RNA sequence: GACGAUAAAGGCAAACCUGCCGAAAGACAGGGGCGCAAAACCGCGGGCCUAAAGUGUAACUGCUAAGGCAGCCGGGUUGCCGAAG
Numbered sequence: 001g002a003c004g005a006u007a008a009a010g011g012c013a014a015a016c017c018u019g020c021c022g023a024a025a026g027a028c029a030g031g032g033g034c035g036c037a038a039a040a041c042c043g044c045g046g047g048c049c050u051a052a053a054g055u056g057u058a059a060c061u062g063c064u065a066a067g068g069c070a071g072c073c074g075g076g077u078u079g080c081c082g083a084a085g
Base pairs, nucleotide, nucleotide: 003082004081011036012035016031017030018029019028021026034071039078040077041076042075044074045073046072047069048068049067

This 85-nucleotide sequence from a Syntrophomonadaceae bacterium belongs to the Rfam family "c-di-GMP-I-GGC riboswitch aptamer". It scores 75 bits against the family's covariance model. NCBI's taxonomy places the organism under Bacteria, Bacillati, Bacillota, Eubacteriales, Syntrophomonadaceae. The family's consensus secondary structure is taken from published work. Its family is annotated with cyclic-di-GMP binding in the Gene Ontology. A reference for the family is Smith et al. (2010), "Structural and biochemical determinants of ligand binding by the c-di-GMP riboswitch ", Biochemistry.